[Rfam]
RNA: Ribosomal protein L20 leader
Organism: Litchfieldia stipae
RNA sequence: GGUAAUAAGCAGAAGCACCCGCUUCUCACCUGAAUGACACAUGUUUAUGUAGUUGACAGGUUUACGAGAUAUCUUUUAAUUAUUUAAUUGAAAUCGUAAGUGUGGGUGUAGUAUGCAUCCACACUUUUUUAUGUGU
Numbered sequence: 001g002g003u004a005a006u007a008a009g010c011a012g013a014a015g016c017a018c019c020c021g022c023u024u025c026u027c028a029c030c031u032g033a034a035u036g037a038c039a040c041a042u043g044u045u046u047a048u049g050u051a052g053u054u055g056a057c058a059g060g061u062u063u064a065c066g067a068g069a070u071a072u073c074u075u076u077u078a079a080u081u082a083u084u085u086a087a088u089u090g091a092a093a094u095c096g097u098a099a100g101u102g103u104g105g106g107u108g109u110a111g112u113a114u115g116c117a118u119c120c121a122c123a124c125u126u127u128u129u130u131a132u133g134u135g136u
Stems, first nucleotide, its partner, number of pairs: 011026006028061003036054003039050002101123010